[Rfam]
RNA sequence: CUCGUGUUUGAUUCGUCGCAUGGCCGGGUUGAAAGGGGUAAAAGCUGGGGUGACGACCGGAUGAAAAAUCCGGGGGGCGAAGC
Numbered sequence: 001c002u003c004g005u006g007u008u009u010g011a012u013u014c015g016u017c018g019c020a021u022g023g024c025c026g027g028g029u030u031g032a033a034a035g036g037g038g039u040a041a042a043a044g045c046u047g048g049g050g051u052g053a054c055g056a057c058c059g060g061a062u063g064a065a066a067a068a069u070c071c072g073g074g075g076g077g078c079g080a081a082g083c
Stems, first nucleotide, its partner, number of pairs: 002023003006019002057073006
RNA: RAGATH-28 RNA